[Rfam]
RNA sequence: ACGUCAUACAGAUAUAUAAAUGCAAGACAAUUUAGUAUCUCCCUUUAACGUAGUGUUUUUGAGAAAUAUAAAUGAUAAGUUUCAUUGUGUAGCUAUUUUUAGUUGAAAUGAAAUAAAUUUAUAUGAAAUAGGUUAACCGUAAGACCUUAUGUUGAAAAACAUUAAAAUUGAUCUAAAAAUAAAAUUUUUGAAAUUUCUUUAUUUUUAGUUACGGUUGA
Numbered sequence: 001a002c003g004u005c006a007u008a009c010a011g012a013u014a015u016a017u018a019a020a021u022g023c024a025a026g027a028c029a030a031u032u033u034a035g036u037a038u039c040u041c042c043c044u045u046u047a048a049c050g051u052a053g054u055g056u057u058u059u060u061g062a063g064a065a066a067u068a069u070a071a072a073u074g075a076u077a078a079g080u081u082u083c084a085u086u087g088u089g090u091a092g093c094u095a096u097u098u099u100u101a102g103u104u105g106a107a108a109u110g111a112a113a114u115a116a117a118u119u120u121a122u123a124u125g126a127a128a129u130a131g132g133u134u135a136a137c138c139g140u141a142a143g144a145c146c147u148u149a150u151g152u153u154g155a156a157a158a159a160c161a162u163u164a165a166a167a168u169u170g171a172u173c174u175a176a177a178a179a180u181a182a183a184a185u186u187u188u189u190g191a192a193a194u195u196u197c198u199u200u201a202u203u204u205u206u207a208g209u210u211a212c213g214g215u216u217g218a
Base pairs, nucleotide, nucleotide: 001051002050003049004048006046008044010040011039012038013037014036015035017034018033019032020031021030022028066124067123068122069121070120071119072118073117080113081112082111083110084109085108086107091104092103094101130147131146132145133144134143136215137214138213139212140211141210142168149162150161151160152159153158173208174207175206176205177204178203179202180201181200182199183198
This 218-nucleotide RNA sequence belongs to the Rfam family "IS605-orfB-I RNA". Rfam's curators put it in the seed alignment. The base pairs follow the family's consensus structure, which is taken from published work.